Rfam assigns this 350-nucleotide RNA sequence from Sphingomonas sp. NBWT7 to the family "Alphaproteobacteria transfer-messenger RNA". Pairs were carried over by alignment from the consensus structure, which is taken from published work. By type it is a non-coding RNA gene. Rfam links the family to the GO term RNA catabolic process.
RNA sequence: GCCCUUGGCACUUUCCCGCCGGCGUCCUAUAUCAGCGGUGCUCGCGGGGCUUGCCCCACGGCUAUGGCGAUAAAAGCCGGCGAAAAAUAGGCACAGCGGACCCGGGGGCAGUACCCGGCGGCUCCACCACUGCCGCUGCUUCCAGCAGGGGCAUUGACGGGGCCGAACCAGGAUCGACGUGUGUUGAAAGGCGCUGGUCUUUGCUCGGAAUGGGACCACCGUGACGGCCCAUACACAAGUGCCAACGAUAACGAAGCACUCGCGAUUGCGGCGUAACCUGACGGCUUAACGGCCUAAGGUUACACCAAAAUAGCGCGGUCGGACCGCACCGGGCAACAGAAGCGGAUUCC
Dot-bracket structure: .......................................(((.................)))...(((((.....(((((((.........(((.(((...(((((.......)))))(((((((.................................)))))))............))))))........)))))))..)))))[[[..(((..((.]]]....)).)))....................................................................................((((..[[.[..)))).............].]]..